[Rfam]
RNA sequence: AACACGCCUAGCCAUCGGCUGAUCCCCGAUGGUGAACCCCGGACACCCCCUGACCGGCUGGCGUGUUUUCUCAUUUCAGGG
Numbered sequence: 001a002a003c004a005c006g007c008c009u010a011g012c013c014a015u016c017g018g019c020u021g022a023u024c025c026c027c028g029a030u031g032g033u034g035a036a037c038c039c040c041g042g043a044c045a046c047c048c049c050c051u052g053a054c055c056g057g058c059u060g061g062c063g064u065g066u067u068u069u070c071u072c073a074u075u076u077c078a079g080g081g
Stems, first nucleotide, its partner, number of pairs: 001067008011033008039057004048081006
This 81-nucleotide RNA sequence from Simplicispira metamorpha belongs to the Rfam family "int-alpA RNA". A search with the family's covariance model found it, with a score of 43 bits. Rfam describes the family as follows. Acidobacteria (1 example), Planctomycetes (1 example), Proteobacteria. Taxonomically the source falls in Simplicispira (Bacteria, Pseudomonadati, Betaproteobacteria, Burkholderiales). By type it is a small RNA.